The record is a 135-nucleotide sequence from Triplophysa rosa, which matches "Small nucleolar RNA SNORA13" in Rfam. A search with the family's covariance model found it, with a score of 67 bits. Its family is annotated with nucleolus and RNA processing in the Gene Ontology. Clan: SNORA13 clan.
RNA sequence: AGCCUUUAUGUGUUGCCCAUUCAUUUCCUUUCCAAAGUGAAUGCGGUGUCAAAUAAGGCUUACAUCAACUCUUGUUGUAAUCUUAAUUGGAAAUAAAAGUACUUCCAUUCAGUAAGCUCUGCAAUAAGAACAUCC
Number, nucleotide and partner (000 for none) at each position: 001a000002g059003c058004c057005u056006u055007u000008a000009u000010g000011u051012g050013u000014u048015g047016c046017c045018c043019a042020u041021u040022c039023a038024u037025u036026u000027c000028c000029u000030u000031u000032c000033c000034a000035a000036a025037g024038u023039g022040a021041a020042u019043g018044c000045g017046g016047u015048g014049u000050c012051a011052a000053a000054u000055a006056a005057g004058g003059c002060u000061u000062a000063c000064a000065u000066c000067a000068a000069c000070u000071c128072u127073u126074g125075u123076u000077g122078u121079a120080a000081u000082c000083u000084u000085a000086a000087u116088u115089g000090g113091a000092a000093a109094u000095a000096a000097a000098a000099g000100u000101a000102c000103u000104u000105c000106c000107a000108u000109u093110c000111a000112g000113u090114a000115a088116g087117c000118u000119c000120u079121g078122c077123a075124a000125u074126a073127a072128g071129a000130a000131c000132a000133u000134c000135c000